Shown here is a 70-nucleotide RNA sequence from Muraenolepis orangiensis, a member of the family "mir-10 microRNA precursor family".
A reference for the family is Ambros (2001), "microRNAs: tiny regulators with great potential", Cell.
Its family is annotated with RISC complex and miRNA-mediated post-transcriptional gene silencing in the Gene Ontology.
RNA sequence: AGACACAUACCUGUAGAUCCGAACUUGGACAUACAGUCACCACAAGUUCGGAUCUACGGGUUUGUGGCAG
Numbered sequence: 001a002g003a004c005a006c007a008u009a010c011c012u013g014u015a016g017a018u019c020c021g022a023a024c025u026u027g028g029a030c031a032u033a034c035a036g037u038c039a040c041c042a043c044a045a046g047u048u049c050g051g052a053u054c055u056a057c058g059g060g061u062u063u064g065u066g067g068c069a070g
Base pairs, nucleotide, nucleotide: 002068004066005065006064007063010060011059012058015055016054017053018052019051020050021049022048023047024046025045026044027043028041
Dot-bracket structure: .(.((((..(((..((((((((((((((............).)))))))))))))..)))..)))).)..